[Rfam]
RNA: MIR1512 microRNA precursor family
RNA sequence: UCUUGAUUCCUAACUGAAAAUUCUUAAAGUAUUCCCAUCAUCGAAAUGAAAUGAAGAUUGGGAAUGCUUUAAGAAUUUCAGUUAUGCAUCAAUC
Numbered sequence: 001u002c003u004u005g006a007u008u009c010c011u012a013a014c015u016g017a018a019a020a021u022u023c024u025u026a027a028a029g030u031a032u033u034c035c036c037a038u039c040a041u042c043g044a045a046a047u048g049a050a051a052u053g054a055a056g057a058u059u060g061g062g063a064a065u066g067c068u069u070u071a072a073g074a075a076u077u078u079c080a081g082u083u084a085u086g087c088a089u090c091a092a093u094c
Stems, first nucleotide, its partner, number of pairs: 003092005009086001011084008020076018041054003